[Rfam]
RNA sequence: AGAGGAUAAAUCCAAAGGGAUCGCAUUGAUCCUAAGCCUUAAUUAUAAUUCUCAUACUUAAUGUUCAUGAGGAUCAUGCUAUCCCUUUGGAUUCCUCCUU
Numbered sequence: 001a002g003a004g005g006a007u008a009a010a011u012c013c014a015a016a017g018g019g020a021u022c023g024c025a026u027u028g029a030u031c032c033u034a035a036g037c038c039u040u041a042a043u044u045a046u047a048a049u050u051c052u053c054a055u056a057c058u059u060a061a062u063g064u065u066c067a068u069g070a071g072g073a074u075c076a077u078g079c080u081a082u083c084c085c086u087u088u089g090g091a092u093u094c095c096u097c098c099u100u
Stems, first nucleotide, its partner, number of pairs: 002100005009093013023079004028075005036068001
RNA: mir-393 microRNA precursor family